[Rfam]
RNA: small nucleolar RNA snoR137
Organism: Thalictrum thalictroides
RNA sequence: GUUGCUUCAUAAUGGUGAACUUCUUCAAUCAUAGUGAAGAAUGUUUCAAGUUUCCGGAGCAUAGAUUAAUAUAAUUUUAUUAUUUAUAACCAGGAUUAAACAGCAUUGUGUUUUUAUUCUAAAUUGCACCUUGUUACCUGUCUCCUGGUACAUUA
Number, nucleotide and partner (000 for none) at each position: 001g000002u000003u061004g060005c059006u058007u057008c056009a000010u000011a000012a000013u000014g000015g000016u048017g047018a046019a044020c043021u041022u040023c039024u038025u037026c000027a000028a000029u000030c000031a000032u000033a000034g000035u000036g000037a025038a024039g023040a022041a021042u000043g020044u019045u000046u018047c017048a016049a000050g000051u000052u000053u000054c000055c000056g008057g007058a006059g005060c004061a003062u000063a000064g000065a000066u000067u000068a000069a000070u000071a000072u000073a000074a000075u000076u000077u000078u000079a000080u000081u000082a000083u000084u000085u000086a000087u000088a000089a149090c148091c147092a146093g145094g144095a143096u000097u000098a000099a000100a000101c000102a135103g134104c133105a000106u000107u000108g129109u128110g127111u000112u000113u000114u000115u000116a000117u000118u000119c000120u000121a000122a000123a000124u000125u000126g000127c110128a109129c108130c000131u000132u000133g104134u103135u102136a000137c000138c000139u000140g000141u000142c000143u095144c094145c093146u092147g091148g090149u089150a000151c000152a000153u000154u000155a000